Rfam assigns this 133-nucleotide RNA sequence from Helopsaltes ochotensis to the family "Small nucleolar RNA SNORA84". The organism belongs to Helopsaltes, within Eukaryota. A reference for the family is Marker et al. (2002), "Experimental RNomics: identification of 140 candidates for small non-messenger RNAs in the plant Arabidopsis thaliana", Curr Biol. By type it is an H/ACA-box small nucleolar RNA. A search with the family's covariance model found it, with a score of 95 bits.
RNA sequence: GCCCUGUGGUUACUGGACUCUGCUGUGCCCGUGCAGUGCUUCAGUUGGGAGAUGGGCCCACAGUGAGUCUGUGAUUUACGCAGGGAGUCUGUGAUCCGUGAGCAGCCUCCACAGCCCGGUCACAGGCACACCC
Numbered sequence: 001g002c003c004c005u006g007u008g009g010u011u012a013c014u015g016g017a018c019u020c021u022g023c024u025g026u027g028c029c030c031g032u033g034c035a036g037u038g039c040u041u042c043a044g045u046u047g048g049g050a051g052a053u054g055g056g057c058c059c060a061c062a063g064u065g066a067g068u069c070u071g072u073g074a075u076u077u078a079c080g081c082a083g084g085g086a087g088u089c090u091g092u093g094a095u096c097c098g099u100g101a102g103c104a105g106c107c108u109c110c111a112c113a114g115c116c117c118g119g120u121c122a123c124a125g126g127c128a129c130a131c132c133c
Base pairs, nucleotide, nucleotide: 001058003056004055007050010047012045013044014043015042016041017040020036021035022034023033069125071123072122073121074120075119076118080115081114084110085109087107089105090104091103092102